[Rfam]
This 596-nucleotide part of an RNA from Orchesella cincta belongs to the Rfam family "Eukaryotic small subunit ribosomal RNA". The family is grouped with related families in Rfam's "SSU clan". The family has 90 seed sequences and 75,755 matches in Rfam 15.1. The organism belongs to Orchesella, within Eukaryota. Rfam links the family to the GO terms structural constituent of ribosome and ribosome.
RNA sequence: AGUCAUAUGCUUGUCUCAAAGAUUAAGCCAUGCAUGUCUAAGUUCAAGCGAAAAUAAAGUGAAACGCGAAUGGCUCAUUACAUCAGUUAUGGUUCCUUAGAUCGCACUUACUACUUGGAUAACUGUGGUAAUUCUAGAGCUAAUACAUGCGCUGGGCCCCAACCCUCGUGGAAGGGGCGCUUUUAUUAGAUCAAAGCCAAUCGGGUCUUCGGGCUCGUUUUGUUGGUGACUCUGAAUAACUUUGCUGAUCGCAUGGUCUCGUACCGGCGACGUAUCUUUCAAGUGUCUGCCUUAUCAACUGUCGAUGGUAGGUUAUGCGCCUACCAUGGUUGUAACGGGUAACGGGGAAUUAGGGUUCGAUUCCGGAGAGGGAGCCUGAGAAACGGCUACCACAUCCAAGGAAGGCAGCAGGCGCGCAAAUUACCCACUCCCGGCACGGGGAGGUAGUGACGAAAAAUAACGAUGCUAAACUCAUACGAGGCUUAGCAAUCGGAAUGAGUACACUUUAAAUCCUUUAACGAGGAUCUAUUGGAGGGCAAGUCUGGUGCCAGCAGCCGCGGUAAUUCCAGCUCCAAUAGCGUAUAUUAAUGUUGUUG
Numbered sequence: 001a002g003u004c005a006u007a008u009g010c011u012u013g014u015c016u017c018a019a020a021g022a023u024u025a026a027g028c029c030a031u032g033c034a035u036g037u038c039u040a041a042g043u044u045c046a047a048g049c050g051a052a053a054a055u056a057a058a059g060u061g062a063a064a065c066g067c068g069a070a071u072g073g074c075u076c077a078u079u080a081c082a083u084c085a086g087u088u089a090u091g092g093u094u095c096c097u098u099a100g101a102u103c104g105c106a107c108u109u110a111c112u113a114c115u116u117g118g119a120u121a122a123c124u125g126u127g128g129u130a131a132u133u134c135u136a137g138a139g140c141u142a143a144u145a146c147a148u149g150c151g152c153u154g155g156g157c158c159c160c161a162a163c164c165c166u167c168g169u170g171g172a173a174g175g176g177g178c179g180c181u182u183u184u185a186u187u188a189g190a191u192c193a194a195a196g197c198c199a200a201u202c203g204g205g206u207c208u209u210c211g212g213g214c215u216c217g218u219u220u221u222g223u224u225g226g227u228g229a230c231u232c233u234g235a236a237u238a239a240c241u242u243u244g245c246u247g248a249u250c251g252c253a254u255g256g257u258c259u260c261g262u263a264c265c266g267g268c269g270a271c272g273u274a275u276c277u278u279u280c281a282a283g284u285g286u287c288u289g290c291c292u293u294a295u296c297a298a299c300u301g302u303c304g305a306u307g308g309u310a311g312g313u314u315a316u317g318c319g320c321c322u323a324c325c326a327u328g329g330u331u332g333u334a335a336c337g338g339g340u341a342a343c344g345g346g347g348a349a350u351u352a353g354g355g356u357u358c359g360a361u362u363c364c365g366g367a368g369a370g371g372g373a374g375c376c377u378g379a380g381a382a383a384c385g386g387c388u389a390c391c392a393c394a395u396c397c398a399a400g401g402a403a404g405g406c407a408g409c410a411g412g413c414g415c416g417c418a419a420a421u422u423a424c425c426c427a428c429u430c431c432c433g434g435c436a437c438g439g440g441g442a443g444g445u446a447g448u449g450a451c452g453a454a455a456a457a458u459a460a461c462g463a464u465g466c467u468a469a470a471c472u473c474a475u476a477c478g479a480g481g482c483u484u485a486g487c488a489a490u491c492g493g494a495a496u497g498a499g500u501a502c503a504c505u506u507u508a509a510a511u512c513c514u515u516u517a518a519c520g521a522g523g524a525u526c527u528a529u530u531g532g533a534g535g536g537c538a539a540g541u542c543u544g545g546u547g548c549c550a551g552c553a554g555c556c557g558c559g560g561u562a563a564u565u566c567c568a569g570c571u572c573c574a575a576u577a578g579c580g581u582a583u584a585u586u587a588a589u590g591u592u593g594u595u596g
Base pairs, nucleotide, nucleotide: 001586002585003584005583006582007581008580009579010578011577014455016453017452020448021415027413028412029411031410032409033408036067037066042065043064048060049059074368075367076366084289085288086287089284090283093282094281099277100276101275102274114149116147117146123139124138126136127135128134156178157177158176159175160174163171164170183239184238185237186236187235198226200224205214206213207212249270250269251268252267254266255265256264257263291339292338293337298330299329300328305327306326307325308324309323310322311321312320343365344364345363346362347358348357349356350355370391371390373388374387375386393404395402396401421446423445424444425443429441430440431439432438433437461492462491463490464488465487466486467485468484469483471480472479473478499519500518501516503515529575530574531573532572533571534570542569543568544567545566551558552557